RNA sequence: GCAGCAGAUCGGUCUGUCGCUCACUCUUUCGAGAGUGGGAGGAACGUCCGGGCAACGCAGAGCACCAUCCUUCCUAACAGGAAGUUACUCGUGAGGGUAAAGGAGCGUAGAAGAGAAUGACCGCCAUUUUCCAUGAGUUGUCUGUGCUUCGGUACGGACUACGUGGAGGGUAAGGGUGAGAAGGUGGGGUAAGAGCCUACCGGAUGCAGCGGUGACGCUGCAUGCCGUACGUCUGAUGGGUUGUAAGAUCAUGUAUACCGGCGCAUGUAGGGUGGCUCGCCCGAUGCCGGGGGGUAGAUCGCUGGAGCCAUGCGGUGACGCACGGCCAAGAUAAAUGACAGACGCUCUGGCUACGUGUGGCCGUGAGUACAGAACCCGGCUUACAGAUCUGCUGCUUUU
Numbered sequence: 001g002c003a004g005c006a007g008a009u010c011g012g013u014c015u016g017u018c019g020c021u022c023a024c025u026c027u028u029u030c031g032a033g034a035g036u037g038g039g040a041g042g043a044a045c046g047u048c049c050g051g052g053c054a055a056c057g058c059a060g061a062g063c064a065c066c067a068u069c070c071u072u073c074c075u076a077a078c079a080g081g082a083a084g085u086u087a088c089u090c091g092u093g094a095g096g097g098u099a100a101a102g103g104a105g106c107g108u109a110g111a112a113g114a115g116a117a118u119g120a121c122c123g124c125c126a127u128u129u130u131c132c133a134u135g136a137g138u139u140g141u142c143u144g145u146g147c148u149u150c151g152g153u154a155c156g157g158a159c160u161a162c163g164u165g166g167a168g169g170g171u172a173a174g175g176g177u178g179a180g181a182a183g184g185u186g187g188g189g190u191a192a193g194a195g196c197c198u199a200c201c202g203g204a205u206g207c208a209g210c211g212g213u214g215a216c217g218c219u220g221c222a223u224g225c226c227g228u229a230c231g232u233c234u235g236a237u238g239g240g241u242u243g244u245a246a247g248a249u250c251a252u253g254u255a256u257a258c259c260g261g262c263g264c265a266u267g268u269a270g271g272g273u274g275g276c277u278c279g280c281c282c283g284a285u286g287c288c289g290g291g292g293g294g295u296a297g298a299u300c301g302c303u304g305g306a307g308c309c310a311u312g313c314g315g316u317g318a319c320g321c322a323c324g325g326c327c328a329a330g331a332u333a334a335a336u337g338a339c340a341g342a343c344g345c346u347c348u349g350g351c352u353a354c355g356u357g358u359g360g361c362c363g364u365g366a367g368u369a370c371a372g373a374a375c376c377c378g379g380c381u382u383a384c385a386g387a388u389c390u391g392c393u394g395c396u397u398u399u
Stems, first nucleotide, its partner, number of pairs: 001395010011384001012343007020039008044382001046380001048379005053243004060278004065239005070084005085100001087098004101234002105232005121175002123171003127167003131163001183201006203225001204223008247300004258290005270282004307326003311322004

Shown here is a 399-nucleotide sequence from Porphyromonas gingivalis, a member of the family "Bacterial RNase P class A".
Rfam links the family to the GO terms tRNA processing, ribonuclease P activity and dimeric ribonuclease P complex.
Lineage of the source: Bacteria > Pseudomonadati > Bacteroidia > Bacteroidales > Porphyromonas gingivalis.